[Rfam]
RNA sequence: CGUGGCAGCAGGACUUAACACACAUGUGAACAGUGUACGUGUCCUCCGUGUUCACAGUGGUUAAGUUCUGCCGCCACA
Numbered sequence: 001c002g003u004g005g006c007a008g009c010a011g012g013a014c015u016u017a018a019c020a021c022a023c024a025u026g027u028g029a030a031c032a033g034u035g036u037a038c039g040u041g042u043c044c045u046c047c048g049u050g051u052u053c054a055c056a057g058u059g060g061u062u063a064a065g066u067u068c069u070g071c072c073g074c075c076a077c078a
Stems, first nucleotide, its partner, number of pairs: 011068009026055007
The record is a 78-nucleotide sequence from Merluccius polli, which matches "mir-27 microRNA precursor family" in Rfam. A reference for the family is Chen et al. (2005), "The developmental miRNA profiles of zebrafish as determined by small RNA cloning", Genes Dev. The family has 82 seed sequences and 1,440 matches in Rfam 15.1.